[Rfam]
RNA sequence: AUGGCAUUUAUGACGUGCCUUGAUUAAAGCCUUCAGGACAUCUAGUUGCUGAUGUUGCCAU
Numbered sequence: 001a002u003g004g005c006a007u008u009u010a011u012g013a014c015g016u017g018c019c020u021u022g023a024u025u026a027a028a029g030c031c032u033u034c035a036g037g038a039c040a041u042c043u044a045g046u047u048g049c050u051g052a053u054g055u056u057g058c059c060a061u
Base pairs, nucleotide, nucleotide: 001061002060003059004058005057015049016048017047019045020044022042023041024040030037031036
Dot-bracket structure: (((((.........(((.((.(((.....((....))..))).)).))).......)))))
The record is a 61-nucleotide sequence from Python bivittatus, which matches "Selenocysteine insertion sequence 1" in Rfam. It scores 40 bits against the family's covariance model. The base pairs follow the family's consensus structure, which is taken from published work. Rfam describes the family as follows. The incorporation of selenocysteine into a protein sequence is directed by an in-frame UGA codon (usually a stop codon) within the coding region of the mRNA. Selenoprotein mRNAs contain a conserved secondary structure in the 3' UTR that is required for the distinction of UGA stop from UGA selenocysteine. The selenocysteine insertion sequence (SECIS) is around 60 nt in length and adopts a hairpin structure which is sufficiently well-defined and conserved to act as a computational screen for selenoprotein genes.